[Rfam]
RNA: mir-8799 microRNA precursor family
Organism: Canis lupus
RNA sequence: GGGGGAGGCCGGAUCCUGGGCUGUGUCCCAGUGCCCAGUGCUCCCAGCCUGUGCUGUUGGAUUCGUGCUCCCUGCCACGCAGGCGCCU
Number, nucleotide and partner (000 for none) at each position: 001g087002g086003g000004g084005g000006a000007g000008g080009c079010c000011g076012g075013a000014u000015c074016c000017u000018g071019g070020g069021c000022u067023g066024u065025g064026u061027c060028c059029c056030a055031g054032u053033g052034c051035c000036c000037a000038g049039u000040g048041c047042u046043c000044c000045c000046a042047g041048c040049c038050u000051g034052u033053g032054c031055u030056g029057u000058u000059g028060g027061a026062u000063u000064c025065g024066u023067g022068c000069u020070c019071c018072c000073u000074g015075c012076c011077a000078c000079g009080c008081a000082g000083g000084c004085g000086c002087c001088u000